[Rfam]
RNA sequence: ACAAUGUAUUGUAACAAUAAAGAACUCAGUGUAGAACAGCUAGUCCCUGUGCUGAGAGCAUGUGUAUAACGAGUGAAGAUGUAAUGGGAUACUUUUACAUAGGCGCUUCCAAAAUAUCGUGAGGUAUAUUAGGAAAGAUGGAAACCAUCGAAGUCACGCAUGUGUGCAAAAAUAUAUUGCCAGUAAAAUGUCGUGUUCAUCCAGCCAUCAUAAUAGACCGCUCUGUUGGUAGAGAAGAAUCGUGAUGCCUAUAAAGGUGGAAUUUUAUAGGAGUUAAGUAGCGAAGUUCUAAAUAAGAUGGUAGUGUCGUUGAAUCACAGAAAUGUGAGUAUAAUGGAUGUUUAAUGGUCGAGUAGGGCAAAUCGACAUAAAUUUGAUUGGAUAAAAACAAUUCUUAUUAUGAUUAAAGAAUGAUUCUAAUAGGAUAUUAAACUGAAUGACUUAGCCUGAAAGUUGCACAAAACCAAUUGUGUCUAUCCUCGGUAUCUUUUGUAAGAUAUUGGUGAAGAAAGUUAUAGGGUCGCUCCUUAUAGCUCAGACUUCAUUAGAUAGUGACAGAAUAUUACGACAUUAUAUUUUCGUAGGGUGAAGAUCCCUUUAUUGUUACAAUAGAUU
Numbered sequence: 001a002c003a004a005u006g007u008a009u010u011g012u013a014a015c016a017a018u019a020a021a022g023a024a025c026u027c028a029g030u031g032u033a034g035a036a037c038a039g040c041u042a043g044u045c046c047c048u049g050u051g052c053u054g055a056g057a058g059c060a061u062g063u064g065u066a067u068a069a070c071g072a073g074u075g076a077a078g079a080u081g082u083a084a085u086g087g088g089a090u091a092c093u094u095u096u097a098c099a100u101a102g103g104c105g106c107u108u109c110c111a112a113a114a115u116a117u118c119g120u121g122a123g124g125u126a127u128a129u130u131a132g133g134a135a136a137g138a139u140g141g142a143a144a145c146c147a148u149c150g151a152a153g154u155c156a157c158g159c160a161u162g163u164g165u166g167c168a169a170a171a172a173u174a175u176a177u178u179g180c181c182a183g184u185a186a187a188a189u190g191u192c193g194u195g196u197u198c199a200u201c202c203a204g205c206c207a208u209c210a211u212a213a214u215a216g217a218c219c220g221c222u223c224u225g226u227u228g229g230u231a232g233a234g235a236a237g238a239a240u241c242g243u244g245a246u247g248c249c250u251a252u253a254a255a256g257g258u259g260g261a262a263u264u265u266u267a268u269a270g271g272a273g274u275u276a277a278g279u280a281g282c283g284a285a286g287u288u289c290u291a292a293a294u295a296a297g298a299u300g301g302u303a304g305u306g307u308c309g310u311u312g313a314a315u316c317a318c319a320g321a322a323a324u325g326u327g328a329g330u331a332u333a334a335u336g337g338a339u340g341u342u343u344a345a346u347g348g349u350c351g352a353g354u355a356g357g358g359c360a361a362a363u364c365g366a367c368a369u370a371a372a373u374u375u376g377a378u379u380g381g382a383u384a385a386a387a388a389c390a391a392u393u394c395u396u397a398u399u400a401u402g403a404u405u406a407a408a409g410a411a412u413g414a415u416u417c418u419a420a421u422a423g424g425a426u427a428u429u430a431a432a433c434u435g436a437a438u439g440a441c442u443u444a445g446c447c448u449g450a451a452a453g454u455u456g457c458a459c460a461a462a463a464c465c466a467a468u469u470g471u472g473u474c475u476a477u478c479c480u481c482g483g484u485a486u487c488u489u490u491u492g493u494a495a496g497a498u499a500u501u502g503g504u505g506a507a508g509a510a511a512g513u514u515a516u517a518g519g520g521u522c523g524c525u526c527c528u529u530a531u532a533g534c535u536c537a538g539a540c541u542u543c544a545u546u547a548g549a550u551a552g553u554g555a556c557a558g559a560a561u562a563u564u565a566c567g568a569c570a571u572u573a574u575a576u577u578u579u580c581g582u583a584g585g586g587u588g589a590a591g592a593u594c595c596c597u598u599u600a601u602u603g604u605u606a607c608a609a610u611a612g613a614u615u
Base pairs, nucleotide, nucleotide: 007612010609014605017602020599021598022597025056026055027054028053029052036050037049038048039047058163059162060161061160062159063158072107073106074105075104079100080099081098082097083096084095086093087092108133109132111130112129114127115126116125117124118123137149138148139147140146141145170579171578172577186564193346194345198340199339200338201337202336203335204302205301206300207299208298209297221234222233223232224231240284241283242282243281245279248271249270250269251268254266255265256264258291259290260289261288305368306367307366308365309364315328316327317326318325319324350453356448357447358446359445361443433538434537435536475551476550477549501548503546507542508541512535514532515531516530517529518528519527520526584595585594586593587592

Description
A member of the RNA family "ROOL RNA", 615 nucleotides long. It is annotated as a small RNA. Firmicutes, Fusobacteria (1 example), Tenericutes (1 example).